[Rfam]
RNA sequence: AUUGACUGAUCGCUGAGUUUCCGUGAAGACGGAAAACGGGGGAACCAAUGAUGACGCUGUGCGCGUGUCCGAUGUGAGAGUCGGAUGAGCGCACAGCCGGGGUGAAUCUUUGACUGGUGCCAUGGACACCGGUUAAGGUAGGGCGACUCUCACCGCCCGAAUCCGGCAGCUAACCUCGUAAGCGUCGCUCGAGAGAGGAA
Numbered sequence: 001a002u003u004g005a006c007u008g009a010u011c012g013c014u015g016a017g018u019u020u021c022c023g024u025g026a027a028g029a030c031g032g033a034a035a036a037c038g039g040g041g042g043a044a045c046c047a048a049u050g051a052u053g054a055c056g057c058u059g060u061g062c063g064c065g066u067g068u069c070c071g072a073u074g075u076g077a078g079a080g081u082c083g084g085a086u087g088a089g090c091g092c093a094c095a096g097c098c099g100g101g102g103u104g105a106a107u108c109u110u111u112g113a114c115u116g117g118u119g120c121c122a123u124g125g126a127c128a129c130c131g132g133u134u135a136a137g138g139u140a141g142g143g144c145g146a147c148u149c150u151c152a153c154c155g156c157c158c159g160a161a162u163c164c165g166g167c168a169g170c171u172a173a174c175c176u177c178g179u180a181a182g183c184g185u186c187g188c189u190c191g192a193g194a195g196a197g198g199a200a
Base pairs, nucleotide, nucleotide: 011184012183013182014181018035019034020033021032022031023030024029036179037178038177039176040175041174046099100164101163102162108138109137110136111135112134113133114132115131116130117129118128119127141158142157143156144155

Notes:
This 200-nucleotide sequence from Paenibacillus endophyticus belongs to the Rfam family "c-di-AMP riboswitch aptamer (ydaO/yuaA leader)". A search with the family's covariance model found it, with a score of 84 bits.